[Rfam]
RNA: chrB-a RNA
RNA sequence: GGUCUGGGGUUCGCGAUCGCCCCGUGAGGCGUCAGCCUGAGAGUCGCGCCUGCAACCCUGAAUGCGAAGGGAGGGCGCCUCAUG
Numbered sequence: 001g002g003u004c005u006g007g008g009g010u011u012c013g014c015g016a017u018c019g020c021c022c023c024g025u026g027a028g029g030c031g032u033c034a035g036c037c038u039g040a041g042a043g044u045c046g047c048g049c050c051u052g053c054a055a056c057c058c059u060g061a062a063u064g065c066g067a068a069g070g071g072a073g074g075g076c077g078c079c080u081c082a083u084g
Base pairs, nucleotide, nucleotide: 005024006023007022008021009020010019046078047077048076049075050074051073